[Rfam]
RNA sequence: UACCCCCAGCUAGGCUGGGGGUUCUAAAAAGCUUUUAGCUUUGCUUCUGUUAUAAAACUCCUUUUGAUUUGCUAUAACUGACUUGCGGUCUGGCAACUGCAUGUCGAACAAAUCAAAAG
Numbered sequence: 001u002a003c004c005c006c007c008a009g010c011u012a013g014g015c016u017g018g019g020g021g022u023u024c025u026a027a028a029a030a031g032c033u034u035u036u037a038g039c040u041u042u043g044c045u046u047c048u049g050u051u052a053u054a055a056a057a058c059u060c061c062u063u064u065u066g067a068u069u070u071g072c073u074a075u076a077a078c079u080g081a082c083u084u085g086c087g088g089u090c091u092g093g094c095a096a097c098u099g100c101a102u103g104u105c106g107a108a109c110a111a112a113u114c115a116a117a118a119g
Stems, first nucleotide, its partner, number of pairs: 002022009028042006061119011073107001077104002081102001084101006
This 119-nucleotide RNA from Desulfovibrio litoralis belongs to the Rfam family "STnc490 Hfq binding RNA". By type it is a small RNA. The family has 76 seed sequences and 285 matches in Rfam 15.1. The base pairs follow the family's consensus structure, which was predicted with WAR.